RNA sequence: UUCGUUCAUCUAUCUAGACGGAAGUAGAGCUUUUAGCUUGAAGGAACGCAUU
Numbered sequence: 001u002u003c004g005u006u007c008a009u010c011u012a013u014c015u016a017g018a019c020g021g022a023a024g025u026a027g028a029g030c031u032u033u034u035a036g037c038u039u040g041a042a043g044g045a046a047c048g049c050a051u052u
Stems, first nucleotide, its partner, number of pairs: 003048005009018003021049001027039005
Dot-bracket structure: ..(((((.(((....)))..[.....(((((...)))))....)))))]...
The family of this 52-nucleotide sequence is "Glutamine riboswitch aptamer (glnA leader)". It is one of the family's seed sequences. The literature on the family includes a 2011 paper in RNA Biol by Ames and Breaker, "Bacterial aptamers that selectively bind glutamine".